[Rfam]
RNA sequence: AUCUAAAAAUAUUUGUAUUCUCUGCAGCUGUUCUCCUGGUGACAGCUGUGGCAUUCCUCUGUGGGAAAGAAAUUGCUACACGAUCAAACACCUCUUAGCAAAAUGGAAAGUGGGCAUAUGUGUGACAAACAUGA
Numbered sequence: 001a002u003c004u005a006a007a008a009a010u011a012u013u014u015g016u017a018u019u020c021u022c023u024g025c026a027g028c029u030g031u032u033c034u035c036c037u038g039g040u041g042a043c044a045g046c047u048g049u050g051g052c053a054u055u056c057c058u059c060u061g062u063g064g065g066a067a068a069g070a071a072a073u074u075g076c077u078a079c080a081c082g083a084u085c086a087a088a089c090a091c092c093u094c095u096u097a098g099c100a101a102a103a104u105g106g107a108a109a110g111u112g113g114g115c116a117u118a119u120g121u122g123u124g125a126c127a128a129a130c131a132u133g134a
Stems, first nucleotide, its partner, number of pairs: 003064003022051009078123005091114003094110003